[Rfam]
RNA sequence: CUUCUAUCCAGAGUGGUGGAGGGAUCUGGCCCUACGAAACCACAGCAACCGGUCGAAUGACCAUGGUGCUAAUUCCAGCAGAAUUUUUCUGGAAGAUAGGAG
Number, nucleotide and partner (000 for none) at each position: 001c102002u101003u100004c099005u098006a097007u096008c095009c000010a000011g000012a000013g043014u042015g041016g040017u039018g000019g000020a000021g032022g031023g030024a000025u000026c078027u077028g076029g075030c023031c022032c021033u000034a000035c000036g000037a000038a000039a017040c016041c015042a014043c013044a070045g069046c068047a067048a000049c066050c065051g062052g061053u060054c059055g000056a000057a000058u000059g054060a053061c052062c051063a000064u000065g050066g049067u047068g046069c045070u044071a000072a000073u000074u094075c029076c028077a027078g026079c091080a090081g089082a088083a087084u000085u000086u000087u083088u082089c081090u080091g079092g000093a000094a074095g008096a007097u006098a005099g004100g003101a002102g001
The record is a 102-nucleotide sequence from Tepidibacillus sp. HK-1, which matches "SAM riboswitch aptamer (S box leader)" in Rfam. Lineage of the source: Bacteria > Bacillati > Bacilli > Caryophanales > Tepidibacillus. The base pairs follow the family's consensus structure, which is taken from published work.